[Rfam]
Description: This 130-nucleotide RNA sequence from Streptomyces sp. GS7 belongs to the Rfam family "Streptomyces RNA 5676". Taxonomically the source falls in Streptomyces (Bacteria, Actinomycetota, Actinomycetes, Kitasatosporales). Identified by deep sequencing of transcriptome at the end of exponential growth phase.

RNA sequence: AGAUGAGAGAAACACCCCGCCCGCAGGGGACUGCGGGUGACGCCCGGUCGGCGCUUCCCCGGCUUCGACCUGGCCGUGCCCUCGCGCACAACACCGGAGCCGUUCGCUCCGGGAAUCCUCACCGAUCGGA
Numbered sequence: 001a002g003a004u005g006a007g008a009g010a011a012a013c014a015c016c017c018c019g020c021c022c023g024c025a026g027g028g029g030a031c032u033g034c035g036g037g038u039g040a041c042g043c044c045c046g047g048u049c050g051g052c053g054c055u056u057c058c059c060c061g062g063c064u065u066c067g068a069c070c071u072g073g074c075c076g077u078g079c080c081c082u083c084g085c086g087c088a089c090a091a092c093a094c095c096g097g098a099g100c101c102g103u104u105c106g107c108u109c110c111g112g113g114a115a116u117c118c119u120c121a122c123c124g125a126u127c128g129g130a
Stems, first nucleotide, its partner, number of pairs: 004121004009117002018039009042074003046070002049067003053063002076089004094112007122129002